Source information: The record is a 70-nucleotide RNA sequence from Nicotiana attenuata, which matches "MIR6151 microRNA precursor family" in Rfam. The base pairs follow the family's consensus structure, which was predicted with RNAalifold.
[Rfam]
RNA sequence: AUUCGUUGGAUGAGUGUGAGGCGUUGGAUUGAUUAAUUCAAUCGGAGCCCCAUAUUCAUCAGGGGUUCGU
Numbered sequence: 001a002u003u004c005g006u007u008g009g010a011u012g013a014g015u016g017u018g019a020g021g022c023g024u025u026g027g028a029u030u031g032a033u034u035a036a037u038u039c040a041a042u043c044g045g046a047g048c049c050c051c052a053u054a055u056u057c058a059u060c061a062g063g064g065g066u067u068c069g070u
Stems, first nucleotide, its partner, number of pairs: 004065001006063002009060010020049003024046002027043006